[Rfam]
RNA sequence: GAACUGAAGAGUUUGAUUCUGGCUCAGAUUGAACGCUGGCGGCAUGCUUAACACAUGCAAGUCGAACGAGGGAAGCAGCUUGCUGCGGACCUAGUGGCGGACGGGUGAGUAACGUAUAGGAAUCUACCUUGGGGUGGGGGAUAACGUAUGGAAACGUACGCUAAUACCACAUAACACUUACGAGUCAAAGCGGGGGAUCUUCGGACCUCGCGCCCUUAGAUGAGCCUAUAUUGGAUUAGCUAGUUGGUAGGGUAAAGGCCUACCAAGGCGACGAUCCAUAGCUGGUUUGAGAGGAUGAUCAGCCACAUCGGGACUGAGACACGGCCCGAACUCCUACGGGAGGCAGCAGUGGGGAAUAUUGGACAAUGGGGGCAACCCUGAUCCAGCAAUGCCGCGUGUGUGAAGAAGGCCUUAGGGUUGUAAAGCACUUUCGUUAGUGAAGAAAGGUUUAUGGUUAAUACCUGUGAAUUUGACAUUAGCUAAAGAAGAAGCACCGGCUAACUCCGUGCCAGCAGCCGCGGUAAUACGGAGGGUGCAAGCGUUAUUCGGAAUGACUG
Numbered sequence: 001g002a003a004c005u006g007a008a009g010a011g012u013u014u015g016a017u018u019c020u021g022g023c024u025c026a027g028a029u030u031g032a033a034c035g036c037u038g039g040c041g042g043c044a045u046g047c048u049u050a051a052c053a054c055a056u057g058c059a060a061g062u063c064g065a066a067c068g069a070g071g072g073a074a075g076c077a078g079c080u081u082g083c084u085g086c087g088g089a090c091c092u093a094g095u096g097g098c099g100g101a102c103g104g105g106u107g108a109g110u111a112a113c114g115u116a117u118a119g120g121a122a123u124c125u126a127c128c129u130u131g132g133g134g135u136g137g138g139g140g141a142u143a144a145c146g147u148a149u150g151g152a153a154a155c156g157u158a159c160g161c162u163a164a165u166a167c168c169a170c171a172u173a174a175c176a177c178u179u180a181c182g183a184g185u186c187a188a189a190g191c192g193g194g195g196g197a198u199c200u201u202c203g204g205a206c207c208u209c210g211c212g213c214c215c216u217u218a219g220a221u222g223a224g225c226c227u228a229u230a231u232u233g234g235a236u237u238a239g240c241u242a243g244u245u246g247g248u249a250g251g252g253u254a255a256a257g258g259c260c261u262a263c264c265a266a267g268g269c270g271a272c273g274a275u276c277c278a279u280a281g282c283u284g285g286u287u288u289g290a291g292a293g294g295a296u297g298a299u300c301a302g303c304c305a306c307a308u309c310g311g312g313a314c315u316g317a318g319a320c321a322c323g324g325c326c327c328g329a330a331c332u333c334c335u336a337c338g339g340g341a342g343g344c345a346g347c348a349g350u351g352g353g354g355a356a357u358a359u360u361g362g363a364c365a366a367u368g369g370g371g372g373c374a375a376c377c378c379u380g381a382u383c384c385a386g387c388a389a390u391g392c393c394g395c396g397u398g399u400g401u402g403a404a405g406a407a408g409g410c411c412u413u414a415g416g417g418u419u420g421u422a423a424a425g426c427a428c429u430u431u432c433g434u435u436a437g438u439g440a441a442g443a444a445a446g447g448u449u450u451a452u453g454g455u456u457a458a459u460a461c462c463u464g465u466g467a468a469u470u471u472g473a474c475a476u477u478a479g480c481u482a483a484a485g486a487a488g489a490a491g492c493a494c495c496g497g498c499u500a501a502c503u504c505c506g507u508g509c510c511a512g513c514a515g516c517c518g519c520g521g522u523a524a525u526a527c528g529g530a531g532g533g534u535g536c537a538a539g540c541g542u543u544a545u546u547c548g549g550a551a552u553g554a555c556u557g
Base pairs, nucleotide, nucleotide: 009025010024011023012022013021027547028546030544032543033542034541035540036539037538039395040394041393042392043391044390045388046387047353052351053350054349056348057347058346061098062097063096066095067094069092070091075086076085077084078083105306106305107304114231115230116229117228118227119226120225123223124222128219129218131216132215133214134213136170138168139167145160146159147158148157149156150155176185177184178183190211191210192209193208194207195206232278233277234276239269240268241267244266245265246264247263248262249261250260251259281303282302283301284300285296286295287294288293308329309328310327311326312325331342332341333340334339359385361384362383363382367380368379369378370377371376398428399427400426401425408419409418410417411416432488434483435482436481437480438479442474448468449467450466451465452464453463491536492535493534494533495532502531503530504529505528506527512519513518

Background:
This 557-nucleotide part of an RNA from Suttonella indologenes belongs to the Rfam family "Bacterial small subunit ribosomal RNA". A search with the family's covariance model found it, with a score of 1556 bits. NCBI's taxonomy places the organism under Bacteria, Pseudomonadati, Cardiobacteriales, Cardiobacteriaceae, Suttonella.